RNA sequence: UACUACCAAACCCUAUCUCCACCUCCACGUGGUGACCACCGAGAGCUUUUUCUUAUCGAAAAGCUGCAGAGGGAGCAGG
Numbered sequence: 001u002a003c004u005a006c007c008a009a010a011c012c013c014u015a016u017c018u019c020c021a022c023c024u025c026c027a028c029g030u031g032g033u034g035a036c037c038a039c040c041g042a043g044a045g046c047u048u049u050u051u052c053u054u055a056u057c058g059a060a061a062a063g064c065u066g067c068a069g070a071g072g073g074a075g076c077a078g079g
Stems, first nucleotide, its partner, number of pairs: 012079003016075001018073003021033003044065007052058001
Dot-bracket structure: ...........(((.(.((((((.......)))..........(((((((.(.....)))))))).....))).).)))
Annotation:
This 79-nucleotide sequence from Hermetia illucens belongs to the Rfam family "drz-agam-1 ribozyme". Gene Ontology term of the family: catalytic activity. The base pairs follow the family's consensus structure, which is taken from published work. On this family, see Webb et al., Science 2009: "Widespread occurrence of self-cleaving ribozymes". A search with the family's covariance model found it, with a score of 40 bits. The organism belongs to Hermetia, within Eukaryota.